About this RNA: This 129-nucleotide RNA from Odocoileus virginianus belongs to the Rfam family "Small nucleolar RNA SNORA56". The family is grouped with related families in Rfam's "SNORA56 clan". The organism belongs to Odocoileus virginianus, within Eukaryota. Gene Ontology terms of the family: RNA processing and nucleolus. By type it is an H/ACA-box small nucleolar RNA.
RNA sequence: CAGGAGACAGUUAUCCCUUUCUGGUCUGGCUCAGGGGACUUCAGAUGGGGGAAUCUAUCUUCAAACACGAGUGGUGAGUUCUGCUCAGCAUCAGUGUUUGGAGAGGGGUUUUAGACUCACCAGAGAUCA
Numbered sequence: 001c002a003g004g005a006g007a008c009a010g011u012u013a014u015c016c017c018u019u020u021c022u023g024g025u026c027u028g029g030c031u032c033a034g035g036g037g038a039c040u041u042c043a044g045a046u047g048g049g050g051g052a053a054u055c056u057a058u059c060u061u062c063a064a065a066c067a068c069g070a071g072u073g074g075u076g077a078g079u080u081c082u083g084c085u086c087a088g089c090a091u092c093a094g095u096g097u098u099u100g101g102a103g104a105g106g107g108g109u110u111u112u113a114g115a116c117u118c119a120c121c122a123g124a125g126a127u128c129a
Stems, first nucleotide, its partner, number of pairs: 003062005020045005025038003072122007080115003083109003091102002094099001
Pairs were carried over by alignment from the consensus structure.